RNA sequence: UGAGCCACGAACUCCCCCAAAGAACCUGGGGGAAAGAACCACCCGCCCUCCCUCCCCUCCCCCGCAUCACCCGGACGAGUGACUGGCUUGCGGGGGUGGGAAGUUGGCGGUUACGUUCGCGGCAACAACCCCAGACAUAUGACGGCCCCCGGCCGGGACGGCAAUCCCGAUCGAGGGCCUCACCGAUCAGGAAGAGACACCUUCCCG
Numbered sequence: 001u002g003a004g005c006c007a008c009g010a011a012c013u014c015c016c017c018c019a020a021a022g023a024a025c026c027u028g029g030g031g032g033a034a035a036g037a038a039c040c041a042c043c044c045g046c047c048c049u050c051c052c053u054c055c056c057c058u059c060c061c062c063c064g065c066a067u068c069a070c071c072c073g074g075a076c077g078a079g080u081g082a083c084u085g086g087c088u089u090g091c092g093g094g095g096g097u098g099g100g101a102a103g104u105u106g107g108c109g110g111u112u113a114c115g116u117u118c119g120c121g122g123c124a125a126c127a128a129c130c131c132c133a134g135a136c137a138u139a140u141g142a143c144g145g146c147c148c149c150c151g152g153c154c155g156g157g158a159c160g161g162c163a164a165u166c167c168c169g170a171u172c173g174a175g176g177g178c179c180u181c182a183c184c185g186a187u188c189a190g191g192a193a194g195a196g197a198c199a200c201c202u203u204c205c206c207g
Stems, first nucleotide, its partner, number of pairs: 002054003067082004072077001091121002094118002144179005150173002155168004190205005
Dot-bracket structure: .(((...............................................)))............((((.(....).))))........((.((.....................)).))......................(((((.((...((((......))))...)).)))))..........(((((......)))))..
Rfam assigns this 207-nucleotide RNA sequence from Streptomyces pristinaespiralis to the family "Streptomyces sRNA 4677". About the family: Located in the intergenic region between anti-sigma factor SCO4677 gene and a putative regulatory protein gene SCO4676. scr4677 expression requires the SCO4677 activity and scr4677 sRNA itself seem to affect the levels of the SCO4676-associated transcripts. A reference for the family is Hindra et al. (2014), "Complex intra-operonic dynamics mediated by a small RNA in Streptomyces coelicolor", PLoS One. Lineage of the source: Bacteria > Actinomycetes > Kitasatosporales > Streptomycetaceae > Streptomyces pristinaespiralis.